[Rfam]
RNA sequence: CCCUCCUACAAAGCCGUGUCCUUCGCUCCCCCUCUUUGGACAGGAAGAACUGGAGGCAGAGAAAUGAGGAUUUGGAGACAUCUGGGGCCGGCUUGCUCCCUGCAGGCUCAAACUGAACUGUUCCACAGGA
Number, nucleotide and partner (000 for none) at each position: 001c000002c056003c055004u054005c053006c052007u000008a000009c000010a000011a000012a000013g000014c000015c044016g000017u042018g041019u040020c039021c038022u000023u000024c000025g029026c000027u000028c000029c025030c000031c000032c000033u000034c000035u000036u000037u000038g021039g020040a019041c018042a017043g000044g015045a000046a000047g000048a000049a000050c000051u000052g006053g005054a004055g003056g002057c000058a000059g000060a000061g000062a000063a000064a000065u000066g000067a000068g123069g122070a121071u000072u120073u000074g000075g000076a000077g000078a000079c000080a000081u000082c000083u000084g000085g000086g000087g000088c000089c000090g108091g107092c106093u105094u104095g103096c102097u000098c000099c000100c000101u000102g096103c095104a094105g093106g092107c091108u090109c000110a000111a000112a000113c000114u000115g000116a000117a000118c000119u000120g072121u070122u069123c068124c000125a000126c000127a000128g000129g000130a000
A member of the RNA family "Small nucleolar RNA SNORA38" from Cavia porcellus, 130 nucleotides long.
It is annotated as an H/ACA-box small nucleolar RNA.
Rfam links the family to the GO terms nucleolus, RNA processing and Cajal body.